[Rfam]
RNA sequence: UAUAUUUGCCGCUUGAAAGAACGUCUUUCAAAUACAUAACAAUCAUUUACAACAAUAUUAGCAUG
Numbered sequence: 001u002a003u004a005u006u007u008g009c010c011g012c013u014u015g016a017a018a019g020a021a022c023g024u025c026u027u028u029c030a031a032a033u034a035c036a037u038a039a040c041a042a043u044c045a046u047u048u049a050c051a052a053c054a055a056u057a058u059u060a061g062c063a064u065g
Base pairs, nucleotide, nucleotide: 014030015029016028017027018026019025
RNA: S15-Flavobacteria ribosomal protein leader
Organism: Winogradskyella aurantia